A member of the RNA family "Small nucleolar RNA SNORA9" from Triplophysa tibetana, 131 nucleotides long.
[Rfam]
RNA sequence: AUGCAGGCUGUUCAGCAAGGUUGAGUCUUUGUGACUCCUCCCUUUCCUGUAAUGUCUGCUAGAGAAAUUUGAUGUGGUUUGAGGCCUGUUGUGGUGCGUUCACAGCAUGGUUAUAUAAUCUUCAAACAUUG
Numbered sequence: 001a002u003g004c005a006g007g008c009u010g011u012u013c014a015g016c017a018a019g020g021u022u023g024a025g026u027c028u029u030u031g032u033g034a035c036u037c038c039u040c041c042c043u044u045u046c047c048u049g050u051a052a053u054g055u056c057u058g059c060u061a062g063a064g065a066a067a068u069u070u071g072a073u074g075u076g077g078u079u080u081g082a083g084g085c086c087u088g089u090u091g092u093g094g095u096g097c098g099u100u101c102a103c104a105g106c107a108u109g110g111u112u113a114u115a116u117a118a119u120c121u122u123c124a125a126a127c128a129u130u131g
Stems, first nucleotide, its partner, number of pairs: 003059006018043003023037005070124003074120001085110002087107003091103003
Source information:
Rfam 15.1 lists 1,202 matches to the family in 518 species. Rfam's curators write: ACA9 is a member of the H/ACA class of snoRNA that guide the sites of modification of uridines to pseudouridines. The source organism's lineage runs through Eukaryota, Deuterostomia, Clupeocephala, Ostariophysi and Triplophysa. By type it is an H/ACA-box small nucleolar RNA.